The family of this 86-nucleotide sequence from Falco tinnunculus is "Small nucleolar RNA snR60/Z15/Z230/Z193/J17".
The family is grouped with related families in Rfam's "SNORD77 clan".
Taxonomically the source falls in Falco (Eukaryota, Eumetazoa, Bilateria, Chordata).
Pairs were carried over by alignment from the consensus structure.
Rfam classes the family as a C/D-box small nucleolar RNA.
A search with the family's covariance model found it, with a score of 59 bits.
[Rfam]
RNA sequence: AGGCUGUGUGUGAUGACUGCAUAGUUCAGCAGAUGACCCGUGGUGAUCAUACUGCAACUGUCUUUCGCUCCUAUCUGAUGCAGCCU
Numbered sequence: 001a002g003g004c005u006g007u008g009u010g011u012g013a014u015g016a017c018u019g020c021a022u023a024g025u026u027c028a029g030c031a032g033a034u035g036a037c038c039c040g041u042g043g044u045g046a047u048c049a050u051a052c053u054g055c056a057a058c059u060g061u062c063u064u065u066c067g068c069u070c071c072u073a074u075c076u077g078a079u080g081c082a083g084c085c086u
Stems, first nucleotide, its partner, number of pairs: 004083005